[Rfam]
RNA sequence: CGCUUAUGAUGCAUAAAUAUUUGCUACUCUUGACUUCUUGCAUGACGACAUUUUCCACCAAGAUCUCUGAGGCG
Numbered sequence: 001c002g003c004u005u006a007u008g009a010u011g012c013a014u015a016a017a018u019a020u021u022u023g024c025u026a027c028u029c030u031u032g033a034c035u036u037c038u039u040g041c042a043u044g045a046c047g048a049c050a051u052u053u054u055c056c057a058c059c060a061a062g063a064u065c066u067c068u069g070a071g072g073c074g
Stems, first nucleotide, its partner, number of pairs: 001074004